Rfam assigns this 71-nucleotide RNA sequence from Mucilaginibacter oryzae to the family "Group II catalytic intron D1-D4-1". The organism belongs to Mucilaginibacter, within Bacteria. The base pairs follow the family's consensus structure.
[Rfam]
RNA sequence: AGAGCUUGCAGUGAUGCUAAGCUUGUUUAGCAGAAGUCAGCAAAGGCCAUAGUACCAGAAUUGGAAAGGGC
Numbered sequence: 001a002g003a004g005c006u007u008g009c010a011g012u013g014a015u016g017c018u019a020a021g022c023u024u025g026u027u028u029a030g031c032a033g034a035a036g037u038c039a040g041c042a043a044a045g046g047c048c049a050u051a052g053u054a055c056c057a058g059a060a061u062u063g064g065a066a067a068g069g070g071c
Base pairs, nucleotide, nucleotide: 001024002023004022005021006020007019008017009016010015037044046071047070048069055064056063057062